[Rfam]
RNA sequence: GGGUCGUGAGGCUGCCCUUGGGAAGGCGGUCUCGGAUGGACCUUCGAGGAAGUCCGCUCUCACUGAGAGGCGCGCCGCGGCCCCGGCGUCGUGCC
Numbered sequence: 001g002g003g004u005c006g007u008g009a010g011g012c013u014g015c016c017c018u019u020g021g022g023a024a025g026g027c028g029g030u031c032u033c034g035g036a037u038g039g040a041c042c043u044u045c046g047a048g049g050a051a052g053u054c055c056g057c058u059c060u061c062a063c064u065g066a067g068a069g070g071c072g073c074g075c076c077g078c079g080g081c082c083c084c085g086g087c088g089u090c091g092u093g094c095c
Stems, first nucleotide, its partner, number of pairs: 001043005010031007069095003073091002076088002

Shown here is a 95-nucleotide sequence from Rubellimicrobium mesophilum, a member of the family "Rhodo-rpoB RNA". A search with the family's covariance model found it, with a score of 46 bits. Pairs were carried over by alignment from the consensus structure, which is taken from published work. NCBI's taxonomy places the organism under Bacteria, Pseudomonadati, Pseudomonadota, Alphaproteobacteria, Rubellimicrobium mesophilum. By type it is a cis-regulatory element.